A member of the RNA family "Small Cajal body specific RNA 23" from Erinaceus europaeus, 126 nucleotides long.
Rfam describes the family as follows. scaRNAs are a specific class of small nuclear RNAs which localise to the Cajal bodies and guide the modification of RNA polymerase II transcribed spliceosomal RNAs U1, U2, U4, U5 and U12. ACA11 belongs to the H/ACA box class of guide RNAs as it has the predicted hairpin-hinge-hairpin-tail structure,the conserved H/ACA-box motifs and is found associated with GAR1. H/ACA snRNAs are predicted to guide the modification of uridines to pseudouridines in substrate RNAs however, no target RNA has been identified for scaRNA ACA11.
A reference for the family is Darzacq et al. (2002), "Cajal body-specific small nuclear RNAs: a novel class of 2'-O-methylation and pseudouridylation guide RNAs", EMBO J.
The organism belongs to Erinaceus, within Eukaryota.

[Rfam]
RNA sequence: GUGCUCACUGGGUCUCAGUUUCUUCCAUGUGGUCCUGAUCUGCCUUCCAUGACUGAAAGAAAUUGAACUGUUUUGGGGGGGUCUCCUGUCUAAAUAGACUGGGAGAUUAUGGUUUUCAGUGAAACA
Dot-bracket structure: ..(.(((....(.(...(((....((....))....)))..).).....))).)............((((..(((....((((((((((((....)))).)))))))).)))....))))......